[Rfam]
Shown here is a 54-nucleotide RNA from Triplophysa tibetana, a member of the family "UnaL2 LINE 3' element". Rfam 15.1 lists 493,311 matches to the family in 99 species. Its family is annotated with transposition, RNA-mediated in the Gene Ontology.
RNA sequence: AGGAUAAAGCUAUGCAAGUCGCUUUGGAUAAAAGCGUCUGCCAAAUGCCUGAAU
Dot-bracket structure: ............((((...((((((.....))))))..))).)...........
Numbered sequence: 001a002g003g004a005u006a007a008a009g010c011u012a013u014g015c016a017a018g019u020c021g022c023u024u025u026g027g028a029u030a031a032a033a034g035c036g037u038c039u040g041c042c043a044a045a046u047g048c049c050u051g052a053a054u
Stems, first nucleotide, its partner, number of pairs: 013043001014041003020036006
The base pairs follow the family's consensus structure, which is taken from published work. Rfam classes the family as a cis-regulatory element. It scores 64 bits against the family's covariance model.